[Rfam]
RNA sequence: UAACUGCCCGUGCCACACGGCCGGACGGACCGGGGACCCACCGUUCCCCUGGGGUGAAUCCCGCGUGAGCGCGACUGCGAGCACGCGGGUAGGGCGCCUUCCCGCCCGAACCCGUCAGCUAACCCGGUAGGCGGCGAGGAAGAACGGA
Numbered sequence: 001u002a003a004c005u006g007c008c009c010g011u012g013c014c015a016c017a018c019g020g021c022c023g024g025a026c027g028g029a030c031c032g033g034g035g036a037c038c039c040a041c042c043g044u045u046c047c048c049c050u051g052g053g054g055u056g057a058a059u060c061c062c063g064c065g066u067g068a069g070c071g072c073g074a075c076u077g078c079g080a081g082c083a084c085g086c087g088g089g090u091a092g093g094g095c096g097c098c099u100u101c102c103c104g105c106c107c108g109a110a111c112c113c114g115u116c117a118g119c120u121a122a123c124c125c126g127g128u129a130g131g132c133g134g135c136g137a138g139g140a141a142g143a144a145c146g147g148a
Stems, first nucleotide, its partner, number of pairs: 004028003029128006039051002052113003060089008092107004
Shown here is a 148-nucleotide RNA sequence from Blastococcus sp. CCUG 61487, a member of the family "c-di-AMP riboswitch aptamer (ydaO/yuaA leader)".
NCBI's taxonomy places the organism under Bacteria, Actinomycetota, Actinomycetes, Geodermatophilales, Blastococcus.